[Rfam]
This 141-nucleotide RNA sequence from Dipodomys ordii belongs to the Rfam family "Small nucleolar RNA SNORA29". About the family: ACA29 is a member of the H/ACA class of snoRNA that guide the sites of modification of uridines to pseudouridines. A search with the family's covariance model found it, with a score of 137 bits. For this family Rfam cites "RNomics: an experimental approach that identifies 201 candidates for novel, small, non-messenger RNAs in mouse" (Huttenhofer et al., EMBO J, 2001).

RNA sequence: UUUCCCAUUUAACUACAACAUUUUCUUCUAAAAAUAGAUUUUAGUGGCUAUGCUUAUGGGAUAAAUUAAAGUUUCCAUGAUCUGAAGGGGAAGAGUUUAAAAAGUGCCCUCCUUCUAUAUAAAAUGGCUGAACAGAAGAAA
Numbered sequence: 001u002u003u004c005c006c007a008u009u010u011a012a013c014u015a016c017a018a019c020a021u022u023u024u025c026u027u028c029u030a031a032a033a034a035u036a037g038a039u040u041u042u043a044g045u046g047g048c049u050a051u052g053c054u055u056a057u058g059g060g061a062u063a064a065a066u067u068a069a070a071g072u073u074u075c076c077a078u079g080a081u082c083u084g085a086a087g088g089g090g091a092a093g094a095g096u097u098u099a100a101a102a103a104g105u106g107c108c109c110u111c112c113u114u115c116u117a118u119a120u121a122a123a124a125u126g127g128c129u130g131a132a133c134a135g136a137a138g139a140a141a
Stems, first nucleotide, its partner, number of pairs: 004060004016047001018045002075127003092116004